[Rfam]
RNA sequence: GUCACUGUAUGAUACACUCUGGCUAAACCCUUGCAGGCGGCCAGAGGGGUGAUGGUCUGUGAC
Dot-bracket structure: (((((.........(.(((((((.....(((...)))..))))))).)..........)))))
Rfam assigns this 63-nucleotide RNA from Sus scrofa to the family "Selenocysteine insertion sequence 1". The match comes from Rfam's covariance-model search (36 bits). NCBI's taxonomy places the organism under Eukaryota, Craniata, Sarcopterygii, Amniota, Sus. A reference for the family is Walczak et al. (1996), "A novel RNA structural motif in the selenocysteine insertion element of eukaryotic selenoprotein mRNAs", RNA.